The family of this 68-nucleotide RNA from Bos taurus is "mir-483 microRNA precursor family".
RNA sequence: GGGGAGGGCGGGAAGAAAGGAGGGCGUGGUCUGUGCAGCUCCUCACUCCUCUCCUCCCGUCUUCUCCU
Numbered sequence: 001g002g003g004g005a006g007g008g009c010g011g012g013a014a015g016a017a018a019g020g021a022g023g024g025c026g027u028g029g030u031c032u033g034u035g036c037a038g039c040u041c042c043u044c045a046c047u048c049c050u051c052u053c054c055u056c057c058c059g060u061c062u063u064c065u066c067c068u
Base pairs, nucleotide, nucleotide: 001067002066003065004064005063006062007061008060009059010058011057012056013055015053019051021050022049023048024047026046027045028044